Description: This 107-nucleotide RNA from Chitinophaga jiangningensis belongs to the Rfam family "SAM riboswitch aptamer (S box leader)". Gene Ontology term of the family: regulation of gene expression. The family's consensus secondary structure is taken from published work. Lineage of the source: Bacteria > Pseudomonadati > Chitinophagia > Chitinophagales > Chitinophaga.
[Rfam]
RNA sequence: UACUUAUCAAGAAAGGAGUAGGGACAUGGCCCGUCGAUACCUUAGCAACCUUCACACCCGGUGAAAGGUGCUGCAUCCAUCCUCUGUAAUAGGAGGAAAGAUAAGUC
Dot-bracket structure: .(((((((....((((....(((..[[[[))).......))))((((.((((((.......)))).))))))...(]]]](((((......)))))..)))))))).